[Rfam]
RNA sequence: UUUGGGAAAUGAUGAACAAUUCAUCUCAGAUAUCCUUUAUGGAUUUAUUUUCAGAAUGAUGAAAAUUUGCACGUCAGUCUGAUCCCAAA
Numbered sequence: 001u002u003u004g005g006g007a008a009a010u011g012a013u014g015a016a017c018a019a020u021u022c023a024u025c026u027c028a029g030a031u032a033u034c035c036u037u038u039a040u041g042g043a044u045u046u047a048u049u050u051u052c053a054g055a056a057u058g059a060u061g062a063a064a065a066u067u068u069g070c071a072c073g074u075c076a077g078u079c080u081g082a083u084c085c086c087a088a089a
Base pairs, nucleotide, nucleotide: 001089002088003087004086005085006084007083
Background: The family of this 89-nucleotide RNA sequence from Oryza sativa is "Small nucleolar RNA Z122". The base pairs follow the family's consensus structure, which was predicted with PFOLD. The family's RNA type in Rfam is C/D-box small nucleolar RNA. The family has 23 seed sequences and 822 matches in Rfam 15.1. Lineage of the source: Eukaryota > Streptophytina > commelinids > Oryzeae > Oryza sativa.